[Rfam]
RNA sequence: CCCGAGGGGUUGACCGCGAUCGCCCCAUGAGGCCCCGGCCAGAGUAUCGCGUCCUGUCUCCCGACUACGGAGUGGACGUAUCAUG
Numbered sequence: 001c002c003c004g005a006g007g008g009g010u011u012g013a014c015c016g017c018g019a020u021c022g023c024c025c026c027a028u029g030a031g032g033c034c035c036c037g038g039c040c041a042g043a044g045u046a047u048c049g050c051g052u053c054c055u056g057u058c059u060c061c062c063g064a065c066u067a068c069g070g071a072g073u074g075g076a077c078g079u080a081u082c083a084u085g
Stems, first nucleotide, its partner, number of pairs: 006026005049079006
Dot-bracket structure: .....(((((...........)))))......................((((((...................))))))......

Record summary
This 85-nucleotide sequence from Dongia mobilis belongs to the Rfam family "chrB-a RNA". The family's RNA type in Rfam is cis-regulatory element.